A member of the RNA family "Small nucleolar RNA SNORA51", 133 nucleotides long. Rfam 15.1 lists 2,121 matches to the family in 210 species. The base pairs follow the family's consensus structure, which was predicted with PFOLD. It is one of the family's seed sequences.

RNA sequence: AGCCUCCUUGUGCUUAGCACAGGCUGUGUUCCUACACUGACUGUAUAGAAAGAGGAAGGAGAAUAAAACUACCCUGUGUACACCUCAGCCUAGGCCACUGUGCCUGGUCUGUAUUGUGAAUGAGUAGACAUGG
Numbered sequence: 001a002g003c004c005u006c007c008u009u010g011u012g013c014u015u016a017g018c019a020c021a022g023g024c025u026g027u028g029u030u031c032c033u034a035c036a037c038u039g040a041c042u043g044u045a046u047a048g049a050a051a052g053a054g055g056a057a058g059g060a061g062a063a064u065a066a067a068a069c070u071a072c073c074c075u076g077u078g079u080a081c082a083c084c085u086c087a088g089c090c091u092a093g094g095c096c097a098c099u100g101u102g103c104c105u106g107g108u109c110u111g112u113a114u115u116g117u118g119a120a121u122g123a124g125u126a127g128a129c130a131u132g133g
Base pairs, nucleotide, nucleotide: 003058005056006055007054008053020043021042022041026037027036028035029034073124075122076121077120086111087110088109090107091106092105093104094103095102
Dot-bracket structure: ..(.((((...........(((...((((....))))...))).........)))).)..............(.(((........(((.((((((......)))))).)))........))).).........

Rfam describes the family as follows. ACA51 is a member of the H/ACA class of snoRNA that guide the sites of modification of uridines to pseudouridines.
Rfam classes the family as an H/ACA-box small nucleolar RNA.